[Rfam]
RNA sequence: AUACUCUGGUUUCUCUUCAAAAUGAAGAAAUCUUUCGUCUUUUACUAAAGAUUUCCAUGGAGAGGAACAGUUAUGAGUUGGUAACCAAAUUUUUUAAAGCCUUGCUCAGGCAAGGCU
Numbered sequence: 001a002u003a004c005u006c007u008g009g010u011u012u013c014u015c016u017u018c019a020a021a022a023u024g025a026a027g028a029a030a031u032c033u034u035u036c037g038u039c040u041u042u043u044a045c046u047a048a049a050g051a052u053u054u055c056c057a058u059g060g061a062g063a064g065g066a067a068c069a070g071u072u073a074u075g076a077g078u079u080g081g082u083a084a085c086c087a088a089a090u091u092u093u094u095u096a097a098a099g100c101c102u103u104g105c106u107c108a109g110g111c112a113a114g115g116c117u
Stems, first nucleotide, its partner, number of pairs: 003078004009068011028054008097117001099116006
About this RNA
Rfam assigns this 117-nucleotide RNA sequence from Prolemur simus to the family "U5 spliceosomal RNA". From the family's description: U5 RNA is a component of both types of known spliceosome. The precise function of this molecule is unknown, though it is known that the 5' loop is required for splice site selection and p220 binding, and that both the 3' stem-loop and the Sm site are important for Sm protein binding and cap methylation.